[Rfam]
RNA sequence: UAAUUUUUUUGACAGAACAUUCGUAUAAUCUUGAUAAUAUGGUUCAAGAGUAUCUACCAAGGUACCAAAAAUCCUUGACUAUGAGUGGAUUCCGUGAAAAU
Numbered sequence: 001u002a003a004u005u006u007u008u009u010u011g012a013c014a015g016a017a018c019a020u021u022c023g024u025a026u027a028a029u030c031u032u033g034a035u036a037a038u039a040u041g042g043u044u045c046a047a048g049a050g051u052a053u054c055u056a057c058c059a060a061g062g063u064a065c066c067a068a069a070a071a072u073c074c075u076u077g078a079c080u081a082u083g084a085g086u087g088g089a090u091u092c093c094g095u096g097a098a099a100a101u
Stems, first nucleotide, its partner, number of pairs: 018087008029049006058077005064072001

About this RNA: The family of this 101-nucleotide RNA from Clostridium ljungdahlii is "Purine riboswitch aptamer". The organism belongs to Clostridium, within Bacteria.